[Rfam]
RNA sequence: GCUGCACCUAUGACGGCAGGUCAGCAAACGCUCUCACGGCGUGUAGCCUGCCCGACGCCUCGCAGC
Numbered sequence: 001g002c003u004g005c006a007c008c009u010a011u012g013a014c015g016g017c018a019g020g021u022c023a024g025c026a027a028a029c030g031c032u033c034u035c036a037c038g039g040c041g042u043g044u045a046g047c048c049u050g051c052c053c054g055a056c057g058c059c060u061c062g063c064a065g066c
Base pairs, nucleotide, nucleotide: 001066002065003064004063005062015052016051017050018049019048020047021046023044030040031039032038